[Rfam]
RNA sequence: CUGAUCGACCGACCGAGGCAUGCGGGGGCAGGGACGGGGGACCCAGAUCCGGUCCGUAGUACGAGCCGACGCCGGCUCGUGGACCUUGGGGUGAAGCCGCGAACCUGCGGCCGGGCGCAGUUCCCGCCCGAAUCCGACAGCUAACCUCGCAGGUGUGCCGGAGGGAUUUC
Numbered sequence: 001c002u003g004a005u006c007g008a009c010c011g012a013c014c015g016a017g018g019c020a021u022g023c024g025g026g027g028g029c030a031g032g033g034a035c036g037g038g039g040g041a042c043c044c045a046g047a048u049c050c051g052g053u054c055c056g057u058a059g060u061a062c063g064a065g066c067c068g069a070c071g072c073c074g075g076c077u078c079g080u081g082g083a084c085c086u087u088g089g090g091g092u093g094a095a096g097c098c099g100c101g102a103a104c105c106u107g108c109g110g111c112c113g114g115g116c117g118c119a120g121u122u123c124c125c126g127c128c129c130g131a132a133u134c135c136g137a138c139a140g141c142u143a144a145c146c147u148c149g150c151a152g153g154u155g156u157g158c159c160g161g162a163g164g165g166a167u168u169u170c
Base pairs, nucleotide, nucleotide: 001031002030003029035149036148037147038146039145044088045087089135090134091133097110098109099108100107113129114128115127116126
The record is a 170-nucleotide RNA from Winogradskya consettensis, which matches "c-di-AMP riboswitch aptamer (ydaO/yuaA leader)" in Rfam. Lineage of the source: Bacteria > Bacillati > Actinomycetota > Micromonosporaceae > Winogradskya. Gene Ontology terms of the family: regulation of gene expression and cyclic-di-AMP binding.